[Rfam]
The record is a 102-nucleotide sequence from Zunongwangia atlantica, which matches "SAM riboswitch aptamer (S box leader)" in Rfam.
RNA sequence: UUGUUAUCAAGAAAGGCCGAGGGAAUAGACCCGCUGAAGCCUUAGCAACCCUUUGCCAACAAAGAAGGUGCUACGUUCUACCGAUUUCCGGAUAGAUAACAG
Numbered sequence: 001u002u003g004u005u006a007u008c009a010a011g012a013a014a015g016g017c018c019g020a021g022g023g024a025a026u027a028g029a030c031c032c033g034c035u036g037a038a039g040c041c042u043u044a045g046c047a048a049c050c051c052u053u054u055g056c057c058a059a060c061a062a063a064g065a066a067g068g069u070g071c072u073a074c075g076u077u078c079u080a081c082c083g084a085u086u087u088c089c090g091g092a093u094a095g096a097u098a099a100c101a102g
Base pairs, nucleotide, nucleotide: 001102002101003100004099005098006097007096008095013043014042015041016040017039021032022031023030026080027079028078029077044072045071046070047069049068050067051064052063053062054061076094081091082090083089
Dot-bracket structure: ((((((((....(((((...(((..[[[[)))......)))))((((.((((((......))))..))))))...(]]]](((.....)))..)))))))))

The match comes from Rfam's covariance-model search (78 bits). Lineage of the source: Bacteria > Pseudomonadati > Bacteroidota > Flavobacteriia > Zunongwangia atlantica.